The record is a 132-nucleotide sequence from Eudromia elegans, which matches "Small nucleolar RNA SNORA69" in Rfam. U69 is a member of the H/ACA class of small nucleolar RNAs (snoRNAs) which act as guides in the the modification of uridines to pseudouridines. Its family is annotated with nucleolus and RNA processing in the Gene Ontology.
RNA sequence: AAAGCAGGCUGCAAUUGCGGCGCUCCGUGCUGUGGGAGCGCUGCCAUUUUCCUGCUGAGAGCAACGGCGGUAGCGUCGGCUGUGGUUUUACCUCUCUCCUGGUGAAACCGUUUGGCCGUAGCGCGUACAAGG
Numbered sequence: 001a002a003a004g005c006a007g008g009c010u011g012c013a014a015u016u017g018c019g020g021c022g023c024u025c026c027g028u029g030c031u032g033u034g035g036g037a038g039c040g041c042u043g044c045c046a047u048u049u050u051c052c053u054g055c056u057g058a059g060a061g062c063a064a065c066g067g068c069g070g071u072a073g074c075g076u077c078g079g080c081u082g083u084g085g086u087u088u089u090a091c092c093u094c095u096c097u098c099c100u101g102g103u104g105a106a107a108c109c110g111u112u113u114g115g116c117c118g119u120a121g122c123g124c125g126u127a128c129a130a131g132g
Stems, first nucleotide, its partner, number of pairs: 003056006018043009067126003070122002073119003083110010